The record is a 99-nucleotide RNA sequence from Candidatus Enterococcus wittei, which matches "THF (Tetrahydrofolate) riboswitch aptamer" in Rfam. NCBI's taxonomy places the organism under Bacteria, Bacillati, Bacillota, Lactobacillales, Enterococcus.
[Rfam]
RNA sequence: AACAGAGUAGGAAAUAAAGCGUUAAGUGCCUUGAGGAUGGGAUGUUGCCUCUAGGACGAAGAACAAUUGGUUCGCGGUUUUAUUUCCGCAUUCGCUGCA
Numbered sequence: 001a002a003c004a005g006a007g008u009a010g011g012a013a014a015u016a017a018a019g020c021g022u023u024a025a026g027u028g029c030c031u032u033g034a035g036g037a038u039g040g041g042a043u044g045u046u047g048c049c050u051c052u053a054g055g056a057c058g059a060a061g062a063a064c065a066a067u068u069g070g071u072u073c074g075c076g077g078u079u080u081u082a083u084u085u086c087c088g089c090a091u092u093c094g095c096u097g098c099a
Stems, first nucleotide, its partner, number of pairs: 003097003010087010020076003026057002029055003033051004040093005061073004
Dot-bracket structure: ..(((....(((((((((((((...((.(((.((((...[[[[[...)))).)))))...((((.....))))))).)))))))))).]]]]].)))..

The literature on the family includes a 2010 paper in Chem Biol by Ames et al., "A eubacterial riboswitch class that senses the coenzyme tetrahydrofolate".